RNA sequence: AUAAUUCUUCGGGGCGGGGUGAAAUUCCCCACCGGCGGUAAUGCAGCUUUGCUGUUAGCCCGCGAGCGGUUGUCAGCCGCAGAUUCCGGUCAGAUUCCGGAGCCAACGGUUAAAGUCCGGAUGGUAGAAGAUGUGG
Numbered sequence: 001a002u003a004a005u006u007c008u009u010c011g012g013g014g015c016g017g018g019g020u021g022a023a024a025u026u027c028c029c030c031a032c033c034g035g036c037g038g039u040a041a042u043g044c045a046g047c048u049u050u051g052c053u054g055u056u057a058g059c060c061c062g063c064g065a066g067c068g069g070u071u072g073u074c075a076g077c078c079g080c081a082g083a084u085u086c087c088g089g090u091c092a093g094a095u096u097c098c099g100g101a102g103c104c105a106a107c108g109g110u111u112a113a114a115g116u117c118c119g120g121a122u123g124g125u126a127g128a129a130g131a132u133g134u135g136g
Base pairs, nucleotide, nucleotide: 003134006131007130008129009128010127017029018028019027031116032115034104035063036062037061038060058103059102066080067079068078085101086100087099088098089097107119108118109117
Dot-bracket structure: ..(..(((((......(((.......))).[[.(((((...................[[))))..(((.........)))....(((((.......)))))]])..(((.....]]))).......)))))..)..
FMN riboswitch aptamer (RFN element): a 136-nucleotide RNA sequence from Caproicibacterium amylolyticum. The match comes from Rfam's covariance-model search (105 bits). The organism belongs to Caproicibacterium, within Bacteria.